[Rfam]
RNA sequence: UUUUCGAAAUGGCAAACUUAGAGAAAUCUAAGGACGCAAAACUACAGGGGCUACGUUGUUGUUCCACAACAAUAUGCCAGCCAGUUGCCGAA
Numbered sequence: 001u002u003u004u005c006g007a008a009a010u011g012g013c014a015a016a017c018u019u020a021g022a023g024a025a026a027u028c029u030a031a032g033g034a035c036g037c038a039a040a041a042c043u044a045c046a047g048g049g050g051c052u053a054c055g056u057u058g059u060u061g062u063u064c065c066a067c068a069a070c071a072a073u074a075u076g077c078c079a080g081c082c083a084g085u086u087g088c089c090g091a092a
Stems, first nucleotide, its partner, number of pairs: 012037002017032006040086004047082002049078003056072006
RNA: c-di-GMP-I riboswitch aptamer
Organism: Alicyclobacillus acidoterrestris